[Rfam]
A member of the RNA family "Bacterial large subunit ribosomal RNA" from Verrucomicrobia bacterium LW23, 249 nucleotides of a longer RNA. The match comes from Rfam's covariance-model search (2708 bits). NCBI's taxonomy places the organism under Bacteria, Pseudomonadati, Verrucomicrobiota. The family's consensus secondary structure is taken from published work.

RNA sequence: GGAAAUUUGAGGGGUUCACACCUUAGUACGAGAGGACCGGGUGUGACGAACCGCUGGUGUUCCGGUUGUGUCGUCAGACGCAGCGCCGGGUAGCUAUGUUCGGAAAGGAUAAGCGCUGAAAGCAUCUAAGCGCCAAGCCUAUCCCAAGAUGAGAUUUCCCCAUCAAGACCGUGGAAGACCACCACGUUGAUAGGUCGCAUGUGUACGCAUGGCAACAUGUUCAGCAAAGCGAUACUAAUUAUCUGAUCG
Numbered sequence: 001g002g003a004a005a006u007u008u009g010a011g012g013g014g015u016u017c018a019c020a021c022c023u024u025a026g027u028a029c030g031a032g033a034g035g036a037c038c039g040g041g042u043g044u045g046a047c048g049a050a051c052c053g054c055u056g057g058u059g060u061u062c063c064g065g066u067u068g069u070g071u072c073g074u075c076a077g078a079c080g081c082a083g084c085g086c087c088g089g090g091u092a093g094c095u096a097u098g099u100u101c102g103g104a105a106a107g108g109a110u111a112a113g114c115g116c117u118g119a120a121a122g123c124a125u126c127u128a129a130g131c132g133c134c135a136a137g138c139c140u141a142u143c144c145c146a147a148g149a150u151g152a153g154a155u156u157u158c159c160c161c162a163u164c165a166a167g168a169c170c171g172u173g174g175a176a177g178a179c180c181a182c183c184a185c186g187u188u189g190a191u192a193g194g195u196c197g198c199a200u201g202u203g204u205a206c207g208c209a210u211g212g213c214a215a216c217a218u219g220u221u222c223a224g225c226a227a228a229g230c231g232a233u234a235c236u237a238a239u240u241a242u243c244u245g246a247u248c249g
Stems, first nucleotide, its partner, number of pairs: 001159008011145004017045007047102005055096003062089005067082006106140003113133005163246001166244003170186005191237003194233005200226002207220005